[Rfam]
RNA sequence: GAGCAUGCUAUCCUAAGGACCUGAGCUUUGUUUGUGGCUCAGUGUUCUCCAAGUGUGUGCUAGAUAAUUGGGUGGUCUUUGACUGCUGUGGCCCAUUUCUGUCAUCAGCAGCCACUCAGCUGUCCUACAGAU
Numbered sequence: 001g002a003g004c005a006u007g008c009u010a011u012c013c014u015a016a017g018g019a020c021c022u023g024a025g026c027u028u029u030g031u032u033u034g035u036g037g038c039u040c041a042g043u044g045u046u047c048u049c050c051a052a053g054u055g056u057g058u059g060c061u062a063g064a065u066a067a068u069u070g071g072g073u074g075g076u077c078u079u080u081g082a083c084u085g086c087u088g089u090g091g092c093c094c095a096u097u098u099c100u101g102u103c104a105u106c107a108g109c110a111g112c113c114a115c116u117c118a119g120c121u122g123u124c125c126u127a128c129a130g131a132u
Base pairs, nucleotide, nucleotide: 018038020036022034023033024032070125071124072123073122074121075120085112086111088105089104090103091102

Small nucleolar RNA SNORA44: a 132-nucleotide RNA from Parambassis ranga. The match comes from Rfam's covariance-model search (58 bits). Rfam's curators write: ACA44 is a member of the H/ACA class of snoRNA that guide the sites of modification of uridines to pseudouridines. The family is grouped with related families in Rfam's "SNORA44 clan". Gene Ontology terms of the family: nucleolus and RNA processing.